[Rfam]
RNA sequence: CACGUCAGAGCGCUUUGCUGACAUGGCAACAAACCGUGUCCUCUGAAGCGCGAUUUGUGUCCACAUCAGCAAAGCACGCUGACGUGG
Numbered sequence: 001c002a003c004g005u006c007a008g009a010g011c012g013c014u015u016u017g018c019u020g021a022c023a024u025g026g027c028a029a030c031a032a033a034c035c036g037u038g039u040c041c042u043c044u045g046a047a048g049c050g051c052g053a054u055u056u057g058u059g060u061c062c063a064c065a066u067c068a069g070c071a072a073a074g075c076a077c078g079c080u081g082a083c084g085u086g087g
Base pairs, nucleotide, nucleotide: 001086002085003084004083005082006081007080008079010077012075013074014073015072016071017070018069019068020067021066024063025062026061029058030057031056032055033054035052036051037050038049

Annotation: A member of the RNA family "MIR7486 microRNA precursor family" from Gossypium raimondii, 87 nucleotides long. It scores 74 bits against the family's covariance model.